[Rfam]
RNA sequence: UGCGAUCCAUUAAUGGUGUAGUCCCCCAGCCCGGAGCUACUUUACUAUAUUCCAAUUC
Numbered sequence: 001u002g003c004g005a006u007c008c009a010u011u012a013a014u015g016g017u018g019u020a021g022u023c024c025c026c027c028a029g030c031c032c033g034g035a036g037c038u039a040c041u042u043u044a045c046u047a048u049a050u051u052c053c054a055a056u057u058c
Stems, first nucleotide, its partner, number of pairs: 015043002018040005024034002
The record is a 58-nucleotide sequence from Musa balbisiana, which matches "Plastid-psbN 5UTR RNA" in Rfam. It is annotated as a cis-regulatory element. The base pairs follow the family's consensus structure, which was predicted with LocARNA. About the family: Plastid psbN is a non-coding RNA (ncRNA) recognised in plastids. It was reported as a conserved 11 stem-loop in the prime untranslated region (5UTR) of psbN genes. It has been reported that the motif is retained in a subset of mature transcripts in barley, which can suggests a possible role in transcript alternative 5 prime processing. The literature on the family includes a 2023 paper in Plant Commun by Richter et al., "Retrograde signaling in plants: A critical review focusing on the GUN pathway and beyond". It scores 53 bits against the family's covariance model.